The record is a 97-nucleotide sequence from Hydrocotyle verticillata, which matches "Plastid-rps12 3UTR RNA" in Rfam.
Taxonomically the source falls in Hydrocotyle (Eukaryota, Tracheophyta, campanulids, Apiineae).
For this family Rfam cites "Retrograde signaling in plants: A critical review focusing on the GUN pathway and beyond" (Richter et al., Plant Commun, 2023).
By type it is a cis-regulatory element.
The base pairs follow the family's consensus structure, which was predicted with LocARNA.
[Rfam]
RNA sequence: GGUUUACAUUGGUGCAAAUCCAAGUACUUCAAUUUAAAAUGAGAAGCAAUUUUCCAUUGGUAGCAAAUGGUUAUCCAUUAAGCGGAGGAAAUAUUAC
Numbered sequence: 001g002g003u004u005u006a007c008a009u010u011g012g013u014g015c016a017a018a019u020c021c022a023a024g025u026a027c028u029u030c031a032a033u034u035u036a037a038a039a040u041g042a043g044a045a046g047c048a049a050u051u052u053u054c055c056a057u058u059g060g061u062a063g064c065a066a067a068u069g070g071u072u073a074u075c076c077a078u079u080a081a082g083c084g085g086a087g088g089a090a091a092u093a094u095u096a097c
Stems, first nucleotide, its partner, number of pairs: 009023004052087004056078002059075006